[Rfam]
RNA sequence: CUAGCACUUUCACAGGUCCUCCCCUAGGCAGUGGGGCCAGGAUUUGGUAGCUGGUGCUGAAAGAAAUCCUUGACUGCAUCCUUGCCCUGGUGCUGUACCAGUGGUAGCUGUCCAUUGGGACACAG
Numbered sequence: 001c002u003a004g005c006a007c008u009u010u011c012a013c014a015g016g017u018c019c020u021c022c023c024c025u026a027g028g029c030a031g032u033g034g035g036g037c038c039a040g041g042a043u044u045u046g047g048u049a050g051c052u053g054g055u056g057c058u059g060a061a062a063g064a065a066a067u068c069c070u071u072g073a074c075u076g077c078a079u080c081c082u083u084g085c086c087c088u089g090g091u092g093c094u095g096u097a098c099c100a101g102u103g104g105u106a107g108c109u110g111u112c113c114a115u116u117g118g119g120a121c122a123c124a125g
Base pairs, nucleotide, nucleotide: 003058004057005056006055007054008053013046014045015044017042018041019040020039022036023035024034025033068119069118070117072116073115076112078111079110082107083106084105085104086103087101088100089099090098
RNA: Small nucleolar RNA SNORA30/SNORA37 family
Organism: Fukomys damarensis